[Rfam]
RNA sequence: GGAUAUUUGAGAAGGUCAUUCCUCAGUACGAGAGGACCGGGAAUGACGCACCACUGGUGUUCCAGUUGUCUUCCAAAGGCAUCGCUGGGUAGCUAUGUGCGGAACGGAUAAGCGCUGAAAGCAUCUAAGCGCCAAGCCUUCUUCAAGAUAAGAUAUCCCUUCCCGCUCUUCGGAGCGGGACUGUAGGCAGGUUGAAGACGACGACCUUGAUAGGCCGGGUGUGUACGUGUAGCGAUACAUGAGCUAACCGGUACUAAUCAGCCGUGAG
Number, nucleotide and partner (000 for none) at each position: 001g158002g157003a156004u155005a154006u153007u152008u151009g000010a000011g144012a143013a142014g141015g000016u000017c045018a044019u043020u042021c041022c040023u039024c000025a000026g000027u000028a000029c000030g000031a000032g000033a000034g000035g000036a000037c000038c000039g023040g022041g021042a020043a019044u018045g017046a000047c101048g100049c099050a098051c097052c000053a000054c000055u095056g094057g093058u000059g000060u000061u000062c088063c087064a086065g085066u084067u081068g080069u079070c078071u077072u076073c000074c000075a000076a072077a071078g070079g069080c068081a067082u000083c000084g066085c065086u064087g063088g062089g000090u000091a000092g000093c057094u056095a055096u000097g051098u050099g049100c048101g047102g000103a000104a000105c000106g138107g137108a000109u000110a000111a000112g132113c131114g130115c129116u128117g000118a000119a000120a000121g000122c000123a000124u000125c000126u000127a000128a116129g115130c114131g113132c112133c000134a000135a000136g000137c107138c106139u000140u000141c014142u013143u012144c011145a000146a000147g000148a000149u000150a000151a008152g007153a006154u005155a004156u003157c002158c001159c000160u000161u180162c179163c178164c177165g176166c175167u174168c000169u000170u000171c000172g000173g000174a167175g166176c165177g164178g163179g162180a161181c000182u000183g265184u000185a000186g263187g262188c261189a000190g206191g205192u204193u203194g202195a000196a000197g000198a000199c000200g000201a000202c194203g193204a192205c191206c190207u000208u000209g000210a000211u256212a255213g254214g252215c251216c250217g249218g248219g000220u000221g244222u000223g000224u000225a000226c000227g240228u239229g238230u237231a236232g000233c000234g000235a000236u231237a230238c229239a228240u227241g000242a000243g000244c221245u000246a000247a000248c218249c217250g216251g215252u214253a000254c213255u212256a211257a000258u000259c000260a000261g188262c187263c186264g000265u183266g000267a000268g000
The family of this 268-nucleotide part of an RNA from uncultured bacterium AD249-B8 is "Bacterial large subunit ribosomal RNA". A reference for the family is Cannone et al. (2002), "The comparative RNA web (CRW) site: an online database of comparative sequence and structure information for ribosomal, intron, and other RNAs", BMC Bioinformatics.